Description:
This 587-nucleotide part of an RNA from Candidatus Nitrospira inopinata belongs to the Rfam family "Bacterial large subunit ribosomal RNA". The organism belongs to Nitrospira, within Bacteria. Its family is annotated with ribosome and structural constituent of ribosome in the Gene Ontology. The base pairs follow the family's consensus structure, which is taken from published work.

[Rfam]
RNA sequence: CCCGCAACUAGACGGAAAGACCCUGUGCACCUUUACUACAACUUGACAUUGGAUGUUGGAAGGGGCUGUGUAGGAUAGGUGGGAGCCUGCGAAGCGUGGCCGCUAGGUCGCGUGGAGGCGUCGUUGAAAUACCACCCUGAAUCUUCUGAUAUUCUAACUCGGUUCUGUCAUCCAGGACGAAGACAGUGUCUGGUGGGUAGUUUGACUGGGGCGGUCGCCUCCCAAAAGGUAACGGAGGCGCUCAAAGGUUCCCUCAGGCUGGUCGGUAAUCAGCCGUCGAGCGCAAAGGCAGAAGGGAGCUUGACUGCGAGAGCGACAGCUCGAGCAGAGACGAAAGUCGGACUUAGUGAUCCGGUGGUUCUGUGUGGAAGGGCCAUCGCUCAACGGAUAAAAGGUACGCCGGGGAUAACAGGCUGAUCUCCCCCAAGAGUUCACAUCGACGGGGAGGUUUGGCACCUCGAUGUCGACUCAUCGCAUCCUGGGGCUGAAGCUGGUCCCAAGGGUUAGGCUGUUCGCCUAUUAAAGCGGUACGAGAGUUGGGUUCAGAACGUCGUGAGACAGUUCGGUCCCUAUCUGUUGUGGGCGGA
Numbered sequence: 001c002c003c004g005c006a007a008c009u010a011g012a013c014g015g016a017a018a019g020a021c022c023c024u025g026u027g028c029a030c031c032u033u034u035a036c037u038a039c040a041a042c043u044u045g046a047c048a049u050u051g052g053a054u055g056u057u058g059g060a061a062g063g064g065g066c067u068g069u070g071u072a073g074g075a076u077a078g079g080u081g082g083g084a085g086c087c088u089g090c091g092a093a094g095c096g097u098g099g100c101c102g103c104u105a106g107g108u109c110g111c112g113u114g115g116a117g118g119c120g121u122c123g124u125u126g127a128a129a130u131a132c133c134a135c136c137c138u139g140a141a142u143c144u145u146c147u148g149a150u151a152u153u154c155u156a157a158c159u160c161g162g163u164u165c166u167g168u169c170a171u172c173c174a175g176g177a178c179g180a181a182g183a184c185a186g187u188g189u190c191u192g193g194u195g196g197g198u199a200g201u202u203u204g205a206c207u208g209g210g211g212c213g214g215u216c217g218c219c220u221c222c223c224a225a226a227a228g229g230u231a232a233c234g235g236a237g238g239c240g241c242u243c244a245a246a247g248g249u250u251c252c253c254u255c256a257g258g259c260u261g262g263u264c265g266g267u268a269a270u271c272a273g274c275c276g277u278c279g280a281g282c283g284c285a286a287a288g289g290c291a292g293a294a295g296g297g298a299g300c301u302u303g304a305c306u307g308c309g310a311g312a313g314c315g316a317c318a319g320c321u322c323g324a325g326c327a328g329a330g331a332c333g334a335a336a337g338u339c340g341g342a343c344u345u346a347g348u349g350a351u352c353c354g355g356u357g358g359u360u361c362u363g364u365g366u367g368g369a370a371g372g373g374c375c376a377u378c379g380c381u382c383a384a385c386g387g388a389u390a391a392a393a394g395g396u397a398c399g400c401c402g403g404g405g406a407u408a409a410c411a412g413g414c415u416g417a418u419c420u421c422c423c424c425c426a427a428g429a430g431u432u433c434a435c436a437u438c439g440a441c442g443g444g445g446a447g448g449u450u451u452g453g454c455a456c457c458u459c460g461a462u463g464u465c466g467a468c469u470c471a472u473c474g475c476a477u478c479c480u481g482g483g484g485c486u487g488a489a490g491c492u493g494g495u496c497c498c499a500a501g502g503g504u505u506a507g508g509c510u511g512u513u514c515g516c517c518u519a520u521u522a523a524a525g526c527g528g529u530a531c532g533a534g535a536g537u538u539g540g541g542u543u544c545a546g547a548a549c550g551u552c553g554u555g556a557g558a559c560a561g562u563u564c565g566g567u568c569c570c571u572a573u574c575u576g577u578u579g580u581g582g583g584c585g586g587a
Stems, first nucleotide, its partner, number of pairs: 001583008010575003014570002022404004027400002029396005035201004042193002045190004051154013066139001068137001078136005085119003094113008159180002162178006204216004217239006240385001242342002248300006254280002257275006281290002305328004311322003330339003353379007361372002413454003417451001418448007428438002465540001466538004470532001471529005478503002481498006505519005546564004550559003